[Rfam]
RNA sequence: CAGCUAGAUUAUUGUAUAUUUAACUGUAUUCACGGCGUGAAAUAGGGGAUUACACUAUUUUUAAAACGGAAAGUGAAUCAAUUAACAUAGUAGACUCCU
Dot-bracket structure: ..(.....(((((((...((.((.((.((((((..((((((((((.........)))))))....)))....)))))))).)))).)))))))...)..
Numbered sequence: 001c002a003g004c005u006a007g008a009u010u011a012u013u014g015u016a017u018a019u020u021u022a023a024c025u026g027u028a029u030u031c032a033c034g035g036c037g038u039g040a041a042a043u044a045g046g047g048g049a050u051u052a053c054a055c056u057a058u059u060u061u062u063a064a065a066a067c068g069g070a071a072a073g074u075g076a077a078u079c080a081a082u083u084a085a086c087a088u089a090g091u092a093g094a095c096u097c098c099u
Stems, first nucleotide, its partner, number of pairs: 003097001009093007019085002022083002025080002028078006036068003039061007
This 99-nucleotide sequence from Nicotiana tabacum belongs to the Rfam family "MIR6152 microRNA precursor family". Taxonomically the source falls in Nicotiana (Eukaryota, Euphyllophyta, Spermatophyta, eudicotyledons). Rfam 15.1 lists 5,807 matches to the family in 3 species.